[Rfam]
RNA sequence: GAUAACCGUAGAUAACUAAGGGGUCUAAAGUGGGUUGAGUCACUAAACGAACCGUUUCAGUAGUGGAGUCGUACAACCCACCCCAAUACAUGGCUUUUCCCACUAAUAACAAUGCACCGAUGCCUAAAAACAAGAGGUGAUGACCUAAAAUAAUACCCAAUUUUUUCGGGUCAUCCCA
Numbered sequence: 001g002a003u004a005a006c007c008g009u010a011g012a013u014a015a016c017u018a019a020g021g022g023g024u025c026u027a028a029a030g031u032g033g034g035u036u037g038a039g040u041c042a043c044u045a046a047a048c049g050a051a052c053c054g055u056u057u058c059a060g061u062a063g064u065g066g067a068g069u070c071g072u073a074c075a076a077c078c079c080a081c082c083c084c085a086a087u088a089c090a091u092g093g094c095u096u097u098u099c100c101c102a103c104u105a106a107u108a109a110c111a112a113u114g115c116a117c118c119g120a121u122g123c124c125u126a127a128a129a130a131c132a133a134g135a136g137g138u139g140a141u142g143a144c145c146u147a148a149a150a151u152a153a154u155a156c157c158c159a160a161u162u163u164u165u166u167c168g169g170g171u172c173a174u175c176c177c178a
Stems, first nucleotide, its partner, number of pairs: 136175006144169002147166002
The family of this 178-nucleotide RNA from Crocosphaera chwakensis is "Antisense RNA which regulates isiA expression". Rfam's curators put it in the seed alignment.